RNA sequence: GCCCCGGGCGGACGCGAAGCAGGCACCAGCGCCCAGGACACGACACCCCUACUGGUGGACAGACGUGGAAGCAGGGGAGUGCGGUGGCGAAGGCAGUGCCGCAACGUCGAGCGACUGCCGGGU
Numbered sequence: 001g002c003c004c005c006g007g008g009c010g011g012a013c014g015c016g017a018a019g020c021a022g023g024c025a026c027c028a029g030c031g032c033c034c035a036g037g038a039c040a041c042g043a044c045a046c047c048c049c050u051a052c053u054g055g056u057g058g059a060c061a062g063a064c065g066u067g068g069a070a071g072c073a074g075g076g077g078a079g080u081g082c083g084g085u086g087g088c089g090a091a092g093g094c095a096g097u098g099c100c101g102c103a104a105c106g107u108c109g110a111g112c113g114a115c116u117g118c119c120g121g122g123u
Stems, first nucleotide, its partner, number of pairs: 001039001003037002006034005026055004046077005063107004080103006092119006
Overview: The record is a 123-nucleotide sequence, which matches "Betaproteobacteria-1 RNA" in Rfam. The family's RNA type in Rfam is small RNA. Pairs were carried over by alignment from the consensus structure, which is taken from published work.